[Rfam]
Annotation
The record is a 134-nucleotide RNA from Staphylococcus saprophyticus, which matches "FMN riboswitch aptamer (RFN element)" in Rfam.

RNA sequence: AUAUUCUUUCGGGGCAGGGUGAAAUUCCCAACCGGCAGUAAAUUAAGCCUGCGACCUGCAUUUAUGUGUAUAAAUGUGGCUGAUCUAGUGAGAUUCUAGAGCCGACAGUAAAGUCUGGAUGGGAGAAAGAAUGA
Numbered sequence: 001a002u003a004u005u006c007u008u009u010c011g012g013g014g015c016a017g018g019g020u021g022a023a024a025u026u027c028c029c030a031a032c033c034g035g036c037a038g039u040a041a042a043u044u045a046a047g048c049c050u051g052c053g054a055c056c057u058g059c060a061u062u063u064a065u066g067u068g069u070a071u072a073a074a075u076g077u078g079g080c081u082g083a084u085c086u087a088g089u090g091a092g093a094u095u096c097u098a099g100a101g102c103c104g105a106c107a108g109u110a111a112a113g114u115c116u117g118g119a120u121g122g123g124a125g126a127a128a129g130a131a132u133g134a
Base pairs, nucleotide, nucleotide: 003132004131005130006129007128008127009126010125017029018028019027031114032113033104034103035052036051037050038049047102048101056079057078058077059076084100085099086098087097088096106117107116108115
Rfam describes the family as follows. The RFN element is a highly conserved domain that is found frequently in the 5'-untranslated regions of prokaryotic mRNAs that encode for flavin mononucleotide (FMN) biosynthesis and transport proteins. The source organism's lineage runs through Bacteria, Caryophanales, Staphylococcaceae, Staphylococcus and Staphylococcus saprophyticus.